[Rfam]
RNA sequence: CAUGCCAGCAAGGCCCUUAACCACAUCAAAUCCGUGUGGGAGGACUUGCUGGAGGACA
Numbered sequence: 001c002a003u004g005c006c007a008g009c010a011a012g013g014c015c016c017u018u019a020a021c022c023a024c025a026u027c028a029a030a031u032c033c034g035u036g037u038g039g040g041a042g043g044a045c046u047u048g049c050u051g052g053a054g055g056a057c058a
Stems, first nucleotide, its partner, number of pairs: 005052008014043002021039006
Shown here is a 58-nucleotide sequence, a member of the family "Hepatitis C virus stem-loop SL8001 RNA". From the family's description: Even though Hepatitis C virus (HCV) SL8001 is not required for overall replication, conformational changes in this motif tune the initial rate of replication. For this family Rfam cites "The Coding Region of the HCV Genome Contains a Network of Regulatory RNA Structures" (Pirakitikulr et al., Mol Cell, 2016).